[Rfam]
RNA sequence: GCCGAGCUCAGUUACGUGGGGGCAUUAAGGUGGUGGAACGUGGACUCGAUCGACUGGGUCAGAUUUGUGAUCGCUGAAUGCCUGGCUUGCCCUAUCCAAGUUGGGAGCUUGACCCUAGUGACCUAGGUGGAGGCCUAGGCUGACUGGGUCCUAAAGUGACAGGGACUGCGUGAGGCUGGUUUCACAGAACAACGAACACUGCCCGCUCUUGUCAGUGGAUGGAUAAUGAGUCGGUGCCAUCCGGAUCCAAUGGUGCUCGAUUGGUUGUGCCCUUAUUGAACCAUUACCUUU
Numbered sequence: 001g002c003c004g005a006g007c008u009c010a011g012u013u014a015c016g017u018g019g020g021g022g023c024a025u026u027a028a029g030g031u032g033g034u035g036g037a038a039c040g041u042g043g044a045c046u047c048g049a050u051c052g053a054c055u056g057g058g059u060c061a062g063a064u065u066u067g068u069g070a071u072c073g074c075u076g077a078a079u080g081c082c083u084g085g086c087u088u089g090c091c092c093u094a095u096c097c098a099a100g101u102u103g104g105g106a107g108c109u110u111g112a113c114c115c116u117a118g119u120g121a122c123c124u125a126g127g128u129g130g131a132g133g134c135c136u137a138g139g140c141u142g143a144c145u146g147g148g149u150c151c152u153a154a155a156g157u158g159a160c161a162g163g164g165a166c167u168g169c170g171u172g173a174g175g176c177u178g179g180u181u182u183c184a185c186a187g188a189a190c191a192a193c194g195a196a197c198a199c200u201g202c203c204c205g206c207u208c209u210u211g212u213c214a215g216u217g218g219a220u221g222g223a224u225a226a227u228g229a230g231u232c233g234g235u236g237c238c239a240u241c242c243g244g245a246u247c248c249a250a251u252g253g254u255g256c257u258c259g260a261u262u263g264g265u266u267g268u269g270c271c272c273u274u275a276u277u278g279a280a281c282c283a284u285u286a287c288c289u290u291u
Stems, first nucleotide, its partner, number of pairs: 001023003007020004027290010039278002041275003045269001047267003051263003055259005062247006070240002073237001075236002082234008091222002094220005100213001102211007111150005119142002122139007151156001158203001160201003167196001169194003176187003
A member of the RNA family "Plant signal recognition particle RNA" from Carnegiea gigantea, 291 nucleotides long. By type it is a non-coding RNA gene. Rfam links the family to the GO terms signal recognition particle, endoplasmic reticulum targeting and SRP-dependent cotranslational protein targeting to membrane, signal sequence recognition.